[Rfam]
RNA sequence: UUUGGGAAACGAUGCCUAGAUUCAAACAGAGGCGCCAGCUGUAUAUGCUGAUUAAUCUAUUGCACGGCGGUCCGAUCCCAAA
Numbered sequence: 001u002u003u004g005g006g007a008a009a010c011g012a013u014g015c016c017u018a019g020a021u022u023c024a025a026a027c028a029g030a031g032g033c034g035c036c037a038g039c040u041g042u043a044u045a046u047g048c049u050g051a052u053u054a055a056u057c058u059a060u061u062g063c064a065c066g067g068c069g070g071u072c073c074g075a076u077c078c079c080a081a082a
Stems, first nucleotide, its partner, number of pairs: 001082007